Shown here is a 207-nucleotide RNA from a Rhodocyclaceae bacterium, a member of the family "permuted transfer-messenger RNA". It is annotated as a non-coding RNA gene.
RNA sequence: GGUUGUAACUCCGGUGAGCUGGAGACGUUCUGGACAGGGGUUCGACUCCCCUCACCUCCACCGAAGGGCACCGCAACGUGCCCUUCGGUGGGGGUGUACCGGUUUCGACAGGGCGGAUGAAGGCGAGCAGGCAACCCGAAAGGCGACGGACGUAAUCCGCGCAAAUCCAUAAACGCCAACGAUGAGCGUUUCGCACUGGCCGCCUAA
Numbered sequence: 001g002g003u004u005g006u007a008a009c010u011c012c013g014g015u016g017a018g019c020u021g022g023a024g025a026c027g028u029u030c031u032g033g034a035c036a037g038g039g040g041u042u043c044g045a046c047u048c049c050c051c052u053c054a055c056c057u058c059c060a061c062c063g064a065a066g067g068g069c070a071c072c073g074c075a076a077c078g079u080g081c082c083c084u085u086c087g088g089u090g091g092g093g094g095u096g097u098a099c100c101g102g103u104u105u106c107g108a109c110a111g112g113g114c115g116g117a118u119g120a121a122g123g124c125g126a127g128c129a130g131g132c133a134a135c136c137c138g139a140a141a142g143g144c145g146a147c148g149g150a151c152g153u154a155a156u157c158c159g160c161g162c163a164a165a166u167c168c169a170u171a172a173a174c175g176c177c178a179a180c181g182a183u184g185a186g187c188g189u190u191u192c193g194c195a196c197u198g199g200c201c202g203c204c205u206a207a
Stems, first nucleotide, its partner, number of pairs: 001136005015125002026115003030111003036052005053096007137152002
The sequence is in the family's curated seed alignment. Bacterial tmRNA, also known as 10Sa RNA or SsrA, is named for its dual tRNA and mRNA-like properties. Its role is to liberate the mRNA from a stalled ribosome. To accomplish this part of the tmRNA is used as a reading frame that ends in a translation stop signal. The source organism's lineage runs through Bacteria, Pseudomonadati, Pseudomonadota, Rhodocyclales and Rhodocyclaceae. For this family Rfam cites "Phylogenetic analysis of tmRNA secondary structure" (Williams and Bartel, RNA, 1996).